[Rfam]
RNA: Actinobacteria sRNA Ms_IGR-5
RNA sequence: ACACCGGAAGGAGGUGAUCCGAGAAAUGAAGUCUUCUUGGACGCGUGAGGUGACUGUCCGCUAGUCGCCCGAGUACCUCGGACGGAUUGCCGUUCCGCUGGUCCCCGCAUCGGGCGGGCAACCGGCGAAUCCCAGGCAGUCACCGCAGCCCGUGGGAGCCGCGAACUCGUCCCUCGCGGCGGGACCCCCUGAUCAAGGGUCCGGCCCACGGGCUGUUGCCU
Numbered sequence: 001a002c003a004c005c006g007g008a009a010g011g012a013g014g015u016g017a018u019c020c021g022a023g024a025a026a027u028g029a030a031g032u033c034u035u036c037u038u039g040g041a042c043g044c045g046u047g048a049g050g051u052g053a054c055u056g057u058c059c060g061c062u063a064g065u066c067g068c069c070c071g072a073g074u075a076c077c078u079c080g081g082a083c084g085g086a087u088u089g090c091c092g093u094u095c096c097g098c099u100g101g102u103c104c105c106c107g108c109a110u111c112g113g114g115c116g117g118g119c120a121a122c123c124g125g126c127g128a129a130u131c132c133c134a135g136g137c138a139g140u141c142a143c144c145g146c147a148g149c150c151c152g153u154g155g156g157a158g159c160c161g162c163g164a165a166c167u168c169g170u171c172c173c174u175c176g177c178g179g180c181g182g183g184a185c186c187c188c189c190u191g192a193u194c195a196a197g198g199g200u201c202c203g204g205c206c207c208a209c210g211g212g213c214u215g216u217u218g219c220c221u
Stems, first nucleotide, its partner, number of pairs: 013058004018053001059127004064122002067119004146215011159179006